Record summary: The family of this 62-nucleotide RNA sequence from Halomicronema hongdechloris is "Nitrogen stress-induced RNA 1". A reference for the family is Ionescu et al. (2010), "Heterocyst-specific transcription of NsiR1, a non-coding RNA encoded in a tandem array of direct repeats in cyanobacteria", J Mol Biol. The organism belongs to Halomicronema hongdechloris, within Bacteria. A search with the family's covariance model found it, with a score of 62 bits. It is annotated as a small RNA. The base pairs follow the family's consensus structure.
RNA sequence: UGGUAGAUGCACCCUGAUUGUCUAAUCCUCCGUCAGCGUGAGUGCUGACGGAGGAUUUUUUU
Numbered sequence: 001u002g003g004u005a006g007a008u009g010c011a012c013c014c015u016g017a018u019u020g021u022c023u024a025a026u027c028c029u030c031c032g033u034c035a036g037c038g039u040g041a042g043u044g045c046u047g048a049c050g051g052a053g054g055a056u057u058u059u060u061u062u
Stems, first nucleotide, its partner, number of pairs: 002013003027054011